About this RNA:
Shown here is a 191-nucleotide sequence from Dichanthelium oligosanthes, a member of the family "Early nodulin 40". A reference for the family is Gultyaev and Roussis (2007), "Identification of conserved secondary structures and expansion segments in enod40 RNAs reveals new enod40 homologues in plants", Nucleic Acids Res. The family's consensus secondary structure is taken from published work.

RNA sequence: AUGGAAGAUGCAUGGCUUGAGCAUCUACAUGGUUCUUGAGAAGCAGAAUGAGGAUGGAGAGUGAAGGCUGAGCUCCUCCUCAAGAAGUAUUCAGUUCCGUGGUGCCUUUCCUGACCUCCCUGGUGGUCAGCUGAGGUAUGCACAAACCGGCAAGUCACAAGACGGCAAUGGCAGACUCCAUUAGGAGUCCU
Numbered sequence: 001a002u003g004g005a006a007g008a009u010g011c012a013u014g015g016c017u018u019g020a021g022c023a024u025c026u027a028c029a030u031g032g033u034u035c036u037u038g039a040g041a042a043g044c045a046g047a048a049u050g051a052g053g054a055u056g057g058a059g060a061g062u063g064a065a066g067g068c069u070g071a072g073c074u075c076c077u078c079c080u081c082a083a084g085a086a087g088u089a090u091u092c093a094g095u096u097c098c099g100u101g102g103u104g105c106c107u108u109u110c111c112u113g114a115c116c117u118c119c120c121u122g123g124u125g126g127u128c129a130g131c132u133g134a135g136g137u138a139u140g141c142a143c144a145a146a147c148c149g150g151c152a153a154g155u156c157a158c159a160a161g162a163c164g165g166c167a168a169u170g171g172c173a174g175a176c177u178c179c180a181u182u183a184g185g186a187g188u189c190c191u
Stems, first nucleotide, its partner, number of pairs: 058074002087147002090144001091142001105140001107138001174189005